RNA sequence: AAGAUAAAGCAGAAGCACCCGCUUCUCGCCUUGGUAAUUAGAAUUACCGGGCUUACGAGUUUUAAUAAGCAGCUAAUGGAAAUUAGUUGUGUCGCGGGGUGCAUGUGCACGCCGCUUUUUUGUUUCAU
Numbered sequence: 001a002a003g004a005u006a007a008a009g010c011a012g013a014a015g016c017a018c019c020c021g022c023u024u025c026u027c028g029c030c031u032u033g034g035u036a037a038u039u040a041g042a043a044u045u046a047c048c049g050g051g052c053u054u055a056c057g058a059g060u061u062u063u064a065a066u067a068a069g070c071a072g073c074u075a076a077u078g079g080a081a082a083u084u085a086g087u088u089g090u091g092u093c094g095c096g097g098g099g100u101g102c103a104u105g106u107g108c109a110c111g112c113c114g115c116u117u118u119u120u121u122g123u124u125u126c127a128u
Stems, first nucleotide, its partner, number of pairs: 011026006028052003034047005094115004099110004